Small nucleolar RNA snR80: a 148-nucleotide RNA sequence from Colletotrichum shisoi. A search with the family's covariance model found it, with a score of 46 bits. Gene Ontology terms of the family: nucleolus and RNA processing. Lineage of the source: Eukaryota > Dikarya > leotiomyceta > Glomerellaceae > Colletotrichum destructivum species complex. By type it is an H/ACA-box small nucleolar RNA.

[Rfam]
RNA sequence: UUCACCUUGACUACACUCCGAGAUACACCAAUGCUCUACCAUGGUCUUUCUCUAUUUUGGUUCAAGGAAGAUUGAUAUCUUUAGCCCAUUACUCACCGCGGCUUCCCAUUACACCAUGGAGGUCGUGGUCCACAACCGUGGCUAACAU
Number, nucleotide and partner (000 for none) at each position: 001u000002u000003c000004a000005c000006c000007u065008u064009g063010a000011c000012u000013a000014c000015a000016c000017u000018c000019c000020g052021a051022g050023a049024u000025a000026c000027a045028c044029c043030a000031a000032u000033g000034c000035u000036c000037u000038a000039c000040c000041a000042u000043g029044g028045u027046c000047u000048u000049u023050c022051u021052c020053u000054a000055u000056u000057u000058u000059g000060g000061u000062u000063c009064a008065a007066g000067g000068a000069a000070g000071a000072u000073u000074g000075a000076u000077a000078u000079c000080u000081u000082u000083a143084g142085c141086c140087c000088a000089u000090u000091a000092c000093u000094c000095a000096c128097c127098g126099c125100g000101g123102c122103u121104u120105c119106c118107c000108a000109u000110u000111a000112c000113a000114c000115c000116a000117u000118g106119g105120a104121g103122g102123u101124c000125g099126u098127g097128g096129u000130c000131c000132a000133c000134a000135a000136c000137c000138g000139u000140g086141g085142c084143u083144a000145a000146c000147a000148u000